RNA sequence: UGGGCAUCUACGAUGUUUGCUUUCUUUAGUUAUCCUUGCACUUUGAUAUUCAAUGAAGAUGCUUAUGGGGAAAUUCUGGACUGAGAUGCUC
Numbered sequence: 001u002g003g004g005c006a007u008c009u010a011c012g013a014u015g016u017u018u019g020c021u022u023u024c025u026u027u028a029g030u031u032a033u034c035c036u037u038g039c040a041c042u043u044u045g046a047u048a049u050u051c052a053a054u055g056a057a058g059a060u061g062c063u064u065a066u067g068g069g070g071a072a073a074u075u076c077u078g079g080a081c082u083g084a085g086a087u088g089c090u091c
Base pairs, nucleotide, nucleotide: 002091003090004089005088006087007086008085